A member of the RNA family "Small nucleolar RNA SNORA75" from Mus spicilegus, 130 nucleotides long. For this family Rfam cites "The family of box ACA small nucleolar RNAs is defined by an evolutionarily conserved secondary structure and ubiquitous sequence elements essential for RNA accumulation" (Ganot et al., Genes Dev, 1997). The match comes from Rfam's covariance-model search (93 bits). U23 belongs to the H/ACA class of snoRNAs. snoRNAs bind a number of proteins (including dyskerin, Gar1p and Nop10p in the case of the H/ACA class) to form snoRNP complexes. This class are thought to guide the sites of modification of uridines to pseudouridines by forming direct base pairing interactions with substrate RNAs. Targets include ribosomal and spliceosomal RNAs as well as the Trypanosoma spliced leader RNA (SL RNA) as possibly other, still unknown cellular RNAs. Taxonomically the source falls in Mus (Eukaryota, Opisthokonta, Eutheria, Myomorpha). By type it is an H/ACA-box small nucleolar RNA.
[Rfam]
RNA sequence: GUCUUCUCACUGAGCCCCUUUCUGUCAACCGGUGUCAGAUUAUGGAUUCACACAAGAGGAGAGAGGUCACAGAGCUAGCACUUAUCUUCUGUUUUUGCAGAGGUAUAUUUGGUUGUUGUGUGAGACACUC
Dot-bracket structure: ..(((((......(..((...(((.(.......).))).....)).....)...))))).......(((((..............((((((......))))))...............))))).......